[Rfam]
A member of the RNA family "U11 spliceosomal RNA" from Catagonus wagneri, 134 nucleotides long. It is annotated as a spliceosomal small nuclear RNA. A search with the family's covariance model found it, with a score of 103 bits. Lineage of the source: Eukaryota > Opisthokonta > Eumetazoa > Craniata > Catagonus. Pairs were carried over by alignment from the consensus structure, which is taken from published work.

RNA sequence: AAAAAGGGCUUCUGUCUUGAGUGUCAUACGUCGGGCAACUCGUUUGCUCUGUGUACAGAAUCGACAUCAAGAGAUUUAGGAAGCAUAAUUUUUUGAUGCCUGGGCAGCUGGUGAUCAUUGGUUCUGGGGCCCCU
Number, nucleotide and partner (000 for none) at each position: 001a000002a000003a000004a000005a000006g000007g000008g084009c083010u082011u081012c080013u026014g025015u000016c023017u000018u000019g000020a000021g000022u000023g016024u000025c014026a013027u055028a054029c053030g052031u051032c000033g049034g048035g047036c046037a045038a044039c000040u000041c000042g000043u000044u038045u037046g036047c035048u034049c033050u000051g031052u030053g029054u028055a027056c079057a000058g077059a076060a075061u074062c073063g000064a000065c000066a000067u000068c000069a000070a000071g000072a000073g062074a061075u060076u059077u058078a000079g056080g012081a011082a010083g009084c008085a000086u000087a000088a000089u000090u000091u000092u000093u000094u000095g000096a000097u000098g000099c000100c000101u000102g132103g131104g130105c129106a000107g000108c127109u126110g125111g124112u000113g123114a122115u121116c120117a000118u000119u000120g116121g115122u114123u113124c111125u110126g109127g108128g000129g105130c104131c103132c102133c000134u000